[Rfam]
RNA sequence: UCCCCCGCUACUCCUCCCUGAGCGGGUACCCGUCGCCCUUCUUGGCGGGAAUGUUCCUCCCCGUUGCAUGCAACGGGGUUUUUUUU
Numbered sequence: 001u002c003c004c005c006c007g008c009u010a011c012u013c014c015u016c017c018c019u020g021a022g023c024g025g026g027u028a029c030c031c032g033u034c035g036c037c038c039u040u041c042u043u044g045g046c047g048g049g050a051a052u053g054u055u056c057c058u059c060c061c062c063g064u065u066g067c068a069u070g071c072a073a074c075g076g077g078g079u080u081u082u083u084u085u086u
Stems, first nucleotide, its partner, number of pairs: 004026006029049006059078008
RNA: Burkholderia RNA 7 (anti-hemB)